[Rfam]
RNA sequence: AUUGCUAAUUUUCUUCGAGUUCCGUUCCUAAAUCAAAGGACAAGGAAUGGCAACCGAUGGGAUUGACGGGAAACGGUCAAUCCUCCCGAUUUCUGAUGAAAAUCAGAAUGACUUGGAAAGGAGAAAGGAUAAAAUACGC
Numbered sequence: 001a002u003u004g005c006u007a008a009u010u011u012u013c014u015u016c017g018a019g020u021u022c023c024g025u026u027c028c029u030a031a032a033u034c035a036a037a038g039g040a041c042a043a044g045g046a047a048u049g050g051c052a053a054c055c056g057a058u059g060g061g062a063u064u065g066a067c068g069g070g071a072a073a074c075g076g077u078c079a080a081u082c083c084u085c086c087c088g089a090u091u092u093c094u095g096a097u098g099a100a101a102a103u104c105a106g107a108a109u110g111a112c113u114u115g116g117a118a119a120g121g122a123g124a125a126a127g128g129a130u131a132a133a134a135u136a137c138g139c
Stems, first nucleotide, its partner, number of pairs: 003133001011125006019054003022050007033040002059084009069074001085116002
A member of the RNA family "Molybdenum/Tungsten riboswitch aptamer (Moco RNA motif)" from Saccharicrinis carchari, 139 nucleotides long. NCBI's taxonomy places the organism under Bacteria, Pseudomonadati, Bacteroidia, Marinilabiliales, Saccharicrinis.